RNA sequence: UCGCAUGUUAUUUGACCACUCGGUCUCUUAACGCGUACCUCGCCAUUCCUUUUAAAAGAAGGCAUGUCGAGAUGAUAGCACGGCUUUUAAGGAUGUAUUUUGUCCGCGCGUCAAUGCCCUCCUUUUAUCUUGUCCUCAGGGAGCAUGAAUUGGAGAGGAAACAAAAACAAAUCCCAGUG
Numbered sequence: 001u002c003g004c005a006u007g008u009u010a011u012u013u014g015a016c017c018a019c020u021c022g023g024u025c026u027c028u029u030a031a032c033g034c035g036u037a038c039c040u041c042g043c044c045a046u047u048c049c050u051u052u053u054a055a056a057a058g059a060a061g062g063c064a065u066g067u068c069g070a071g072a073u074g075a076u077a078g079c080a081c082g083g084c085u086u087u088u089a090a091g092g093a094u095g096u097a098u099u100u101u102g103u104c105c106g107c108g109c110g111u112c113a114a115u116g117c118c119c120u121c122c123u124u125u126u127a128u129c130u131u132g133u134c135c136u137c138a139g140g141g142a143g144c145a146u147g148a149a150u151u152g153g154a155g156a157g158g159a160a161a162c163a164a165a166a167a168c169a170a171a172u173c174c175c176a177g178u179g
Stems, first nucleotide, its partner, number of pairs: 006033003011030001015024003038074001039071004044066003048062004052057001092173003095168002098166006117158002119155004127150002132146002135143003
RNA: Ascomycota telomerase RNA, nucleotides 952 to 1130
Organism: Claviceps africana